[Rfam]
RNA sequence: UUGACGGGUUUGGGAGAGAGCCGGAUUUCCGGCCACCGAAGGGGCGAAACUCUCAGGUAAAAGAACCGAGCCGGGACG
Numbered sequence: 001u002u003g004a005c006g007g008g009u010u011u012g013g014g015a016g017a018g019a020g021c022c023g024g025a026u027u028u029c030c031g032g033c034c035a036c037c038g039a040a041g042g043g044g045c046g047a048a049a050c051u052c053u054c055a056g057g058u059a060a061a062a063g064a065a066c067c068g069a070g071c072c073g074g075g076a077c078g
Base pairs, nucleotide, nucleotide: 007072008071009070010069011068012067013066020033021032022031023030035058036057037056038054039053042052043051044050
About this RNA
The record is a 78-nucleotide RNA from Ruminococcus sp. CAG:177, which matches "Glycine riboswitch aptamer" in Rfam. Rfam's curators write: This family represents the bacterial glycine riboswitch. On this family, see Mandal et al., Science 2004: "A glycine-dependent riboswitch that uses cooperative binding to control gene expression".